[Rfam]
RNA sequence: GGUAGUAGCAAAUAUUCAAAUGAGAACUUUGAAGACUGAAGUGGAGAAAGGUUCCUGGAGAACAUCAGUUGGUCCAGGGUUAGUCGAUCCUAAGAGAUAGGGAAGUUCCGUUUUUUCAAAGCGCCCAAUUUUUGGGCCGCCUAUCGAAAGGGAAACCGGUUAAUAUUCCGGUACUAGGACGAGGAUUUUUUGCGGCAACGCGAUUGAACUUGGAGACAUCAGUAUGGGUCCCGGGAAGAGUUAUCUUUUCUUUUUGACAGUUAGUAUAAACCUUGAAAUCUGUUUAGCAGGAGAAAAGGUUUAUCUGCUGGUAGAGCACAGUACUUUUUGCUGUGUCCGGUGCAUUCAUAACGAUCCUUGAAAAUCCAAGGGAAAGAAUAAUUUUCUCGCCUAGUCGUACUCAUAACCGCAGCAGGUCUCCAAGGUGAAAAGCCUCUAGUUGA
Number, nucleotide and partner (000 for none) at each position: 001g000002g000003u000004a000005g000006u000007a000008g000009c000010a000011a000012a000013u000014a000015u033016u032017c031018a030019a029020a028021u000022g000023a000024g000025a000026a000027c000028u020029u019030u018031g017032a016033a015034g441035a440036c439037u438038g000039a000040a000041g000042u000043g421044g420045a419046g418047a000048a000049a401050g400051g000052u000053u000054c078055c077056u076057g075058g074059a073060g000061a000062a000063c071064a070065u000066c000067a000068g000069u000070u064071g063072g000073u059074c058075c057076a056077g055078g054079g000080u000081u000082a000083g000084u000085c397086g396087a395088u000089c151090c150091u000092a000093a000094g145095a144096g112097a111098u110099a000100g109101g108102g107103a000104a000105g000106u000107u102108c101109c100110g098111u097112u096113u000114u000115u000116u000117c000118a000119a132120a131121g130122c000123g000124c000125c000126c000127a000128a000129u000130u121131u120132u119133u000134g000135g000136g000137c000138c000139g000140c000141c000142u000143a000144u095145c094146g000147a000148a000149a000150g090151g089152g000153a000154a000155a172156c171157c170158g169159g168160u000161u000162a000163a000164u000165a000166u000167u000168c159169c158170g157171g156172u155173a000174c000175u393176a392177g391178g390179a000180c389181g388182a387183g386184g385185a383186u000187u000188u000189u000190u000191u202192g201193c200194g199195g000196c000197a000198a000199c194200g193201c192202g191203a000204u000205u000206g000207a000208a000209c370210u369211u368212g367213g366214a365215g000216a000217c000218a355219u354220c353221a000222g000223u350224a349225u348226g347227g346228g345229u344230c000231c340232c339233g338234g254235g253236a252237a251238g250239a249240g000241u000242u000243a000244u000245c000246u000247u000248u000249u239250c238251u237252u236253u235254u234255u000256g000257a000258c310259a309260g308261u307262u000263a000264g000265u000266a000267u000268a000269a000270a300271c299272c298273u297274u296275g000276a000277a000278a000279u291280c290281u289282g288283u000284u000285u000286a000287g000288c282289a281290g280291g279292a000293g000294a000295a000296a274297a273298g272299g271300u270301u000302u000303a000304u000305c000306u000307g261308c260309u259310g258311g000312u000313a000314g000315a000316g000317c335318a334319c333320a332321g331322u330323a329324c000325u000326u000327u000328u000329u323330g322331c321332u320333g319334u318335g317336u000337c000338c233339g232340g231341u000342g000343c000344a229345u228346u227347c226348a225349u224350a223351a000352c000353g220354a219355u218356c000357c000358u000359u000360g000361a000362a000363a000364a000365u214366c213367c212368a211369a210370g209371g000372g000373a000374a000375a000376g000377a000378a000379u000380a000381a000382u000383u185384u000385u184386c183387u182388c181389g180390c178391c177392u176393a175394g000395u087396c086397g085398u000399a000400c050401u049402c000403a000404u000405a000406a000407c416408c415409g000410c000411a000412g000413c000414a000415g408416g407417u000418c046419u045420c044421c043422a000423a435424g434425g433426u432427g000428a000429a000430a000431a000432g426433c425434c424435u423436c000437u000438a037439g036440u035441u034442g000443a000
A member of the RNA family "Eukaryotic large subunit ribosomal RNA" from Rhizopus delemar, 443 nucleotides of a longer RNA. The base pairs follow the family's consensus structure, which is taken from published work. The organism belongs to Rhizopus delemar, within Eukaryota. The sequence is in the family's curated seed alignment.